The family of this 129-nucleotide RNA from Jaculus jaculus is "Small nucleolar RNA SNORA11". Its family is annotated with RNA processing and nucleolus in the Gene Ontology. It is annotated as an H/ACA-box small nucleolar RNA.
[Rfam]
RNA sequence: AGGGUAUGCUCAGGGCAGGGGACCUGAACAAUAGCUCCUCUGUUUCUUACACACACAACAGGAUUAUGGGACCAUUGUAACAAGGUGCAUAACACCUGUGGCCUCCCUAUGAGUAAAUGGCCUACAUGU
Number, nucleotide and partner (000 for none) at each position: 001a000002g056003g000004g054005u053006a000007u051008g050009c000010u000011c000012a000013g045014g044015g043016c042017a041018g040019g039020g038021g037022a000023c034024c000025u000026g000027a000028a000029c000030a000031a000032u000033a000034g023035c000036u000037c021038c020039u019040c018041u017042g016043u015044u014045u013046c000047u000048u000049a000050c008051a007052c000053a005054c004055a000056c002057a000058a000059c000060a000061g000062g000063a000064u000065u000066a000067u000068g000069g122070g121071a000072c119073c000074a000075u000076u115077g114078u113079a000080a000081c111082a110083a000084g104085g103086u000087g000088c100089a099090u098091a097092a000093c000094a000095c000096c000097u091098g090099u089100g088101g000102c000103c085104u084105c000106c000107c000108u000109a000110u082111g081112a000113g078114u077115a076116a000117a000118u000119g072120g000121c070122c069123u000124a000125c000126a000127u000128g000129u000

Taxonomically the source falls in Jaculus (Eukaryota, Teleostomi, Boreoeutheria, Euarchontoglires). Rfam 15.1 lists 2,014 matches to the family in 202 species. Rfam's curators write: U107 (SNORA11) is a member of the H/ACA class of snoRNAs that guide the sites of modification of uridines to pseudouridines. This snoRNA was identified by RT-PCR from blood cells and its expression confirmed by Northern blot analysis. There is no predicted target for this guide snRNA.